[Rfam]
RNA: Alphaproteobacteria transfer-messenger RNA
RNA sequence: GUCCUUUCAACGGCCUGAGAAAGGGCCUAUAUUGAAUAUGCCGGUUCGCCGGCUAUGGCGCUAAACAGGCUCGUGAAAUAAGCGCAACGGACCCGGGGGCAGUACCCGGCGCCUCCACCAUUUCUGGCCGUUUCACCGAACAGAUCGGUGCCUGACGGCGGUUUAUGGGGGCGAAAUAGGAUCGACGUGCGUGGUAAAGAUGGGUUUGGUUCCCGGCAUGGUACCGCCGUUAUCGGGCCAUACUCUAGUUGCGAAUGACAACUACGGUGAGGCACGCCUCGCUGCUUAAUGCAGUCAGGUUAGCCAAAUUAAGUCCUGGGCUUUCACAAGCUUAGGCGGGGUUCGGGGCGCACCUGGCAACAGAAGCGCCCCACC
Number, nucleotide and partner (000 for none) at each position: 001g000002u000003c000004c000005u000006u000007u000008c000009a000010a000011c000012g000013g000014c000015c000016u000017g000018a000019g000020a000021a000022a000023g000024g000025g000026c000027c000028u000029a000030u000031a000032u000033u000034g000035a000036a000037u000038a000039u000040g053041c052042c051043g050044g049045u000046u000047c000048g000049c044050c043051g042052g041053c040054u000055a000056u000057g213058g212059c000060g210061c209062u000063a000064a000065a000066c000067a000068g206069g205070c204071u203072c202073g201074u200075g000076a000077a000078a000079u000080a000081a000082g000083c191084g190085c189086a000087a188088c187089g186090g000091a000092c000093c109094c108095g107096g106097g105098g000099g000100c000101a000102g000103u000104a000105c097106c096107c095108g094109g093110c173111g172112c171113c170114u169115c168116c167117a000118c000119c000120a000121u000122u000123u000124c000125u000126g000127g000128c000129c000130g000131u000132u000133u000134c000135a000136c000137c000138g000139a000140a000141c000142a000143g000144a000145u000146c000147g000148g000149u000150g000151c000152c000153u000154g000155a000156c000157g000158g000159c000160g000161g000162u000163u000164u000165a000166u000167g116168g115169g114170g113171g112172c111173g110174a000175a000176a000177u000178a000179g000180g000181a000182u000183c000184g000185a000186c089187g088188u087189g085190c084191g083192u000193g000194g000195u000196a000197a000198a000199g000200a074201u073202g072203g071204g070205u069206u068207u000208g000209g061210u060211u000212c058213c057214c229215g228216g227217c226218a000219u240220g239221g238222u000223a000224c236225c235226g217227c216228c215229g214230u000231u000232a000233u000234c000235g225236g224237g000238c221239c220240a219241u000242a000243c000244u000245c000246u000247a000248g000249u000250u000251g000252c000253g000254a000255a000256u000257g000258a000259c000260a000261a000262c000263u000264a000265c000266g000267g000268u000269g000270a000271g000272g000273c000274a000275c000276g000277c000278c000279u000280c000281g000282c000283u000284g000285c000286u000287u000288a000289a000290u000291g000292c000293a000294g000295u000296c000297a000298g000299g000300u000301u000302a000303g000304c000305c000306a000307a000308a000309u000310u000311a000312a000313g000314u000315c000316c000317u000318g000319g000320g000321c000322u000323u000324u000325c000326a000327c000328a000329a000330g000331c000332u000333u000334a000335g000336g000337c000338g000339g355340g354341g353342u352343u000344c000345g372346g371347g370348g369349c368350g367351c000352a342353c341354c340355u339356g000357g000358c000359a000360a000361c000362a000363g000364a000365a000366g000367c350368g349369c348370c347371c346372c345373a000374c000375c000